A member of the RNA family "LOOT RNA", 119 nucleotides long. The sequence is in the family's curated seed alignment.

RNA sequence: AGCCUAAACCAUCUGAAUUCCUCAGAUGGCAUGGUUCGAAAACGGUUCAACGUAGAGAGCUCCUAGUCAGAGCACGUUGAACCGUCAUGUCGAGAAAUCGGCAUGGGCCCGCAAGGGUC
Dot-bracket structure: ((((....(((((((.......)))))))...))))......(((((((((((.....((((.......))))))))))))))).((((((((....))))))))(((((....)))))
Numbered sequence: 001a002g003c004c005u006a007a008a009c010c011a012u013c014u015g016a017a018u019u020c021c022u023c024a025g026a027u028g029g030c031a032u033g034g035u036u037c038g039a040a041a042a043c044g045g046u047u048c049a050a051c052g053u054a055g056a057g058a059g060c061u062c063c064u065a066g067u068c069a070g071a072g073c074a075c076g077u078u079g080a081a082c083c084g085u086c087a088u089g090u091c092g093a094g095a096a097a098u099c100g101g102c103a104u105g106g107g108c109c110c111g112c113a114a115g116g117g118u119c
Stems, first nucleotide, its partner, number of pairs: 001036004009029007043084011059073004086105008106119005